[Rfam]
RNA sequence: GCUCUCUUAGCUUAAUGGUUAAAGCAUAAUACUUCUAAUAUUAAUAUUCCAUGUUCAAAUCAUGGAGAGAGUA
Numbered sequence: 001g002c003u004c005u006c007u008u009a010g011c012u013u014a015a016u017g018g019u020u021a022a023a024g025c026a027u028a029a030u031a032c033u034u035c036u037a038a039u040a041u042u043a044a045u046a047u048u049c050c051a052u053g054u055u056c057a058a059a060u061c062a063u064g065g066a067g068a069g070a071g072u073a
Stems, first nucleotide, its partner, number of pairs: 001072007010025004027043005049065005